[Rfam]
Shown here is a 77-nucleotide RNA from Anabarilius grahami, a member of the family "Small nucleolar RNA SNORD103/SNORD85". The family's RNA type in Rfam is C/D-box small nucleolar RNA. For this family Rfam cites "RNomics: an experimental approach that identifies 201 candidates for novel, small, non-messenger RNAs in mouse" (Huttenhofer et al., EMBO J, 2001).

RNA sequence: GUUGGCUAUGAUGACAAACUUGCCCUCUCUGAGAGAGCAGCUCUAUUAUGACAAUCAAGUUUAUGUUCUGAGCCAGC
Numbered sequence: 001g002u003u004g005g006c007u008a009u010g011a012u013g014a015c016a017a018a019c020u021u022g023c024c025c026u027c028u029c030u031g032a033g034a035g036a037g038c039a040g041c042u043c044u045a046u047u048a049u050g051a052c053a054a055u056c057a058a059g060u061u062u063a064u065g066u067u068c069u070g071a072g073c074c075a076g077c
Stems, first nucleotide, its partner, number of pairs: 001077006
Dot-bracket structure: ((((((.................................................................))))))
Rfam 15.1 lists 1,349 matches to the family in 595 species. Taxonomically the source falls in Anabarilius (Eukaryota, Opisthokonta, Actinopteri, Osteoglossocephalai). It scores 63 bits against the family's covariance model.